[Rfam]
RNA sequence: GCCGGCGGCCGCGACUGGCGAGGGUGGACCACCACCGGGAAGCGGCCGUGACGUCGACGCCGACCGCCUGGGCACCCGCG
Numbered sequence: 001g002c003c004g005g006c007g008g009c010c011g012c013g014a015c016u017g018g019c020g021a022g023g024g025u026g027g028a029c030c031a032c033c034a035c036c037g038g039g040a041a042g043c044g045g046c047c048g049u050g051a052c053g054u055c056g057a058c059g060c061c062g063a064c065c066g067c068c069u070g071g072g073c074a075c076c077c078g079c080g
Base pairs, nucleotide, nucleotide: 005049006048007047008046009045010044011043012042015039016038017068018067019066020065024035025034026033027032059073060072061071

ZMP/ZTP riboswitch aptamer (pfl RNA motif): an 80-nucleotide RNA sequence from Rugosimonospora africana. The organism belongs to Rugosimonospora, within Bacteria. Its family is annotated with one-carbon metabolic process and regulation of purine nucleotide biosynthetic process in the Gene Ontology.